[Rfam]
RNA sequence: UGGAUUACGAGCGAUGAGGCUCGCUCUAACCGCGGCUCGGGCCGCUGAUAGCUUCUACCCAGUA
Dot-bracket structure: .........[[[[..((((((]]]]......((((......))))....)))))).........